[Rfam]
Annotation:
Rfam assigns this 99-nucleotide RNA sequence from Trinickia symbiotica to the family "Burkholderia sRNA Bp1_Cand612_SIPHT". Pairs were carried over by alignment from the consensus structure, which was predicted with RNAalifold. Rfam classes the family as a small RNA. Lineage of the source: Bacteria > Pseudomonadati > Betaproteobacteria > Burkholderiaceae > Trinickia. It scores 89 bits against the family's covariance model.
Nucleotides: 099
Stems, first nucleotide, its partner, number of pairs: 008024006037089006048082003052078003
Number, partner (000 for none) and nucleotide at each position: 001000a002000a003000a004000a005000a006000a007000a008024a009023u010022g011021g012020g013019c014000u015000g016000a017000a018000c019013g020012c021011c022010c023009a024008u025000c026000u027000u028000c029000u030000u031000a032000c033000c034000g035000g036000u037089g038088g039087u040086c041085g042084c043000c044000a045000c046000c047000u048082g049081a050080g051000c052078c053077g054076c055000a056000c057000a058000a059000g060000u061000g062000a063000a064000g065000c066000c067000g068000u069000a070000c071000g072000c073000c074000c075000a076054g077053c078052g079000a080050c081049u082048u083000u084042g085041c086040g087039a088038u089037u090000c091000u092000a093000g094000c095000a096000u097000u098000u099000u